This 89-nucleotide sequence from an Olavius algarvensis Delta 4 endosymbiont belongs to the Rfam family "c-di-GMP-I riboswitch aptamer". The organism belongs to Deltaproteobacteria, within Bacteria. A search with the family's covariance model found it, with a score of 67 bits. GEMM was predicted in a large-scale screen for bacterial structured RNA regulatory elements. The family's consensus secondary structure is taken from published work.
[Rfam]
RNA sequence: CUAGCCGCAGGGCAAAACUUCCGAAAGGAAGCGGCGCAAAGCUUCCGGCCUAAAUCCUUAAACCGGGACACGGCAGCGGGGCUGCAUGG
Numbered sequence: 001c002u003a004g005c006c007g008c009a010g011g012g013c014a015a016a017a018c019u020u021c022c023g024a025a026a027g028g029a030a031g032c033g034g035c036g037c038a039a040a041g042c043u044u045c046c047g048g049c050c051u052a053a054a055u056c057c058u059u060a061a062a063c064c065g066g067g068a069c070a071c072g073g074c075a076g077c078g079g080g081g082c083u084g085c086a087u088g089g
Base pairs, nucleotide, nucleotide: 012037013036018031019030020029021028022027040083041082042081043080045079046078047077048074049073050072055068056067057066058065